Rfam assigns this 98-nucleotide sequence from Actinorugispora endophytica to the family "Glycine riboswitch aptamer". Taxonomically the source falls in Actinorugispora (Bacteria, Bacillati, Actinomycetes, Nocardiopsidaceae).

RNA sequence: AGCACUCUGGAAAGCAGGAGCCUGUGACAGGCGCCUCGCCGAAGGUGCAAGCCGCCCGCGCGGCGAAGCUCUCAGGCAAAGAUGACAGAGGGGGAGGA
Dot-bracket structure: ..(.(((((......(((...............))).(((((..(.(...((..........))....).))).)))........))))).)......